Shown here is a 244-nucleotide RNA from Capsella rubella, a member of the family "RNase MRP".
A reference for the family is Schmitt et al. (1993), "Secondary structure of RNase MRP RNA as predicted by phylogenetic comparison", FASEB J.
The match comes from Rfam's covariance-model search (87 bits).
[Rfam]
RNA sequence: AUGUCACUGGACGAAGUGAUUGGGCUUCAUGGGCUUGACUAAGUUCCGACCCAGGAAAGUCCCCGGGCCACUUUUCCGCAGAGAUGCGGCCUCGGUAACGAGAGAAUCGUACGGUGGAGAGAUUAAAGCUGAGACACGUGUGUGGAGCUCUCUCUGCCGACGAUAUCAUGGCCGUUCGUAUUACGACAGUUAUUCACCUGGUCCUUGUCAGGACUAACUGAACGGGGCUUACGUUUCAAUGACA
Numbered sequence: 001a002u003g004u005c006a007c008u009g010g011a012c013g014a015a016g017u018g019a020u021u022g023g024g025c026u027u028c029a030u031g032g033g034c035u036u037g038a039c040u041a042a043g044u045u046c047c048g049a050c051c052c053a054g055g056a057a058a059g060u061c062c063c064c065g066g067g068c069c070a071c072u073u074u075u076c077c078g079c080a081g082a083g084a085u086g087c088g089g090c091c092u093c094g095g096u097a098a099c100g101a102g103a104g105a106a107u108c109g110u111a112c113g114g115u116g117g118a119g120a121g122a123u124u125a126a127a128g129c130u131g132a133g134a135c136a137c138g139u140g141u142g143u144g145g146a147g148c149u150c151u152c153u154c155u156g157c158c159g160a161c162g163a164u165a166u167c168a169u170g171g172c173c174g175u176u177c178g179u180a181u182u183a184c185g186a187c188a189g190u191u192a193u194u195c196a197c198c199u200g201g202u203c204c205u206u207g208u209c210a211g212g213a214c215u216a217a218c219u220g221a222a223c224g225g226g227g228c229u230u231a232c233g234u235u236u237c238a239a240u241g242a243c244a
Stems, first nucleotide, its partner, number of pairs: 002244005008238004014199001016197004022052003031046006057230003061227004077088004091102004106164003113161001115159003118155004127149003136143002201214005